[Rfam]
RNA sequence: AGCACACAGCAAGCGCCAGGUCCGUUCCAAUUUGAACGGACGACGAGGUGGGGGCAGUAUCGAACCAUUCGGCGGGUGGCCCCCCGGCAGCACAGUCGACAGGCAGCACACAAACCAGCGCGGGUAACCGGCUGACAAAGGUGCGCCAGGUGCACAG
Numbered sequence: 001a002g003c004a005c006a007c008a009g010c011a012a013g014c015g016c017c018a019g020g021u022c023c024g025u026u027c028c029a030a031u032u033u034g035a036a037c038g039g040a041c042g043a044c045g046a047g048g049u050g051g052g053g054g055c056a057g058u059a060u061c062g063a064a065c066c067a068u069u070c071g072g073c074g075g076g077u078g079g080c081c082c083c084c085c086g087g088c089a090g091c092a093c094a095g096u097c098g099a100c101a102g103g104c105a106g107c108a109c110a111c112a113a114a115c116c117a118g119c120g121c122g123g124g125u126a127a128c129c130g131g132c133u134g135a136c137a138a139a140g141g142u143g144c145g146c147c148a149g150g151u152g153c154a155c156a157g
Stems, first nucleotide, its partner, number of pairs: 020041008050084005060072004085098004103147001106144004117133003121130003

glmS glucosamine-6-phosphate activated ribozyme aptamer: a 157-nucleotide RNA from bacterium SCGC AG-212-C10. The base pairs follow the family's consensus structure, which is taken from published work. The family's RNA type in Rfam is riboswitch. Rfam's curators write: This entry contains a glucosamine-6-phosphate activated ribozyme that is found in the mRNA for GlmS. GlmS is an enzyme that uses fructose-6-phosphate and glutamine to generate glucosamine-6-phosphate. The ribozyme catalyses self cleavage of the glmS mRNA that is thought to regulate GlmS activity.